A member of the RNA family "TPP riboswitch aptamer (THI element)" from Pseudobutyrivibrio ruminis, 97 nucleotides long. Rfam's curators write: Vitamin B(1) in its active form thiamin pyrophosphate (TPP) is an essential coenzyme that is synthesised by coupling of pyrimidine and thiazole moieties in bacteria. The previously detected thiamin-regulatory element, thi box was extended, resulting in a new, highly conserved RNA secondary structure, the THI element, which is widely distributed in eubacteria and also occurs in some archaea. The match comes from Rfam's covariance-model search (72 bits). Taxonomically the source falls in Pseudobutyrivibrio (Bacteria, Bacillati, Clostridia, Lachnospirales).
RNA sequence: AUAUUUUGCUAGGGGCGCAUAUGCUGAGAGGUGCUUGCACCGACCCUUAAUACUUGAACUGGAUAAUACCAGCGUAAGGAAGCGAUAGACGAAUCUC
Numbered sequence: 001a002u003a004u005u006u007u008g009c010u011a012g013g014g015g016c017g018c019a020u021a022u023g024c025u026g027a028g029a030g031g032u033g034c035u036u037g038c039a040c041c042g043a044c045c046c047u048u049a050a051u052a053c054u055u056g057a058a059c060u061g062g063a064u065a066a067u068a069c070c071a072g073c074g075u076a077a078g079g080a081a082g083c084g085a086u087a088g089a090c091g092a093a094u095c096u097c
Stems, first nucleotide, its partner, number of pairs: 006085005011047004017024002031040003053078004059072004
Dot-bracket structure: .....(((((((((..((....))......(((....)))...)))).....((((..((((......))))..))))..)))))............